[Rfam]
RNA sequence: GCAUCGUGAUGAUAAAUUUGAAUUUGUCCGAUCAAUUUCAUGACAGGAUUAUUUACCUCCUACUCAUACUGA
Numbered sequence: 001g002c003a004u005c006g007u008g009a010u011g012a013u014a015a016a017u018u019u020g021a022a023u024u025u026g027u028c029c030g031a032u033c034a035a036u037u038u039c040a041u042g043a044c045a046g047g048a049u050u051a052u053u054u055a056c057c058u059c060c061u062a063c064u065c066a067u068a069c070u071g072a
Base pairs, nucleotide, nucleotide: 006067007066008065009064027048028047